[Rfam]
Overview
A member of the RNA family "Mammalian CPEB3 ribozyme" from Alligator sinensis, 78 nucleotides long. The family's consensus secondary structure is taken from published work. Rfam's curators write: The mammalian CPEB3 ribozyme is a self cleaving RNA located in the second intron of the CPEB3 gene which belongs to a family of genes regulating messenger RNA polyadenylation.
RNA sequence: AGGUCACAAGUUUGAAGCCAUAGCAGCAGUGCUCAUGGUGUGGCCAUGUCAGGUUCCAACGAAUCUGUGAAUUCUGCU
Numbered sequence: 001a002g003g004u005c006a007c008a009a010g011u012u013u014g015a016a017g018c019c020a021u022a023g024c025a026g027c028a029g030u031g032c033u034c035a036u037g038g039u040g041u042g043g044c045c046a047u048g049u050c051a052g053g054u055u056c057c058a059a060c061g062a063a064u065c066u067g068u069g070a071a072u073u074c075u076g077c078u
Base pairs, nucleotide, nucleotide: 013046014045017044018043019042022078023077024076025075026074028072029041030040031039050067051066052065053064054063055062056061